[Rfam]
RNA sequence: GCGAUAUAAUGAAUGGAGAAAAGAGUUGCGGAGGAUCAUAGGAUCCUCCUUCCCCUAGUUGACUUGCCCUCCUAGUCGCUAGGGUUUUUUU
Number, nucleotide and partner (000 for none) at each position: 001g000002c000003g000004a000005u000006a000007u000008a000009a000010u000011g000012a000013a000014u000015g000016g000017a000018g000019a000020a000021a000022a000023g000024a000025g000026u000027u000028g000029c000030g000031g048032a047033g046034g045035a044036u043037c042038a000039u000040a000041g000042g037043a036044u035045c034046c033047u032048c031049c000050u000051u000052c000053c084054c083055c082056u081057a080058g079059u000060u078061g077062a076063c075064u074065u000066g000067c000068c000069c000070u000071c000072c000073u000074a064075g063076u062077c061078g060079c058080u057081a056082g055083g054084g053085u000086u000087u000088u000089u000090u000091u000
RNA: atoC RNA